[Rfam]
RNA sequence: CAGGUACUCAUGAACAAUCCCACCAGGAGUAUACUUUUUUCAAUCUCCCGUGUGGACCUACGGGUUCCGAGA
Numbered sequence: 001c002a003g004g005u006a007c008u009c010a011u012g013a014a015c016a017a018u019c020c021c022a023c024c025a026g027g028a029g030u031a032u033a034c035u036u037u038u039u040u041c042a043a044u045c046u047c048c049c050g051u052g053u054g055g056a057c058c059u060a061c062g063g064g065u066u067c068c069g070a071g072a
Stems, first nucleotide, its partner, number of pairs: 003068002007064003020055004024050001029040001031038001
RNA: Trypanosomatid snoRNA TB11Cs3H1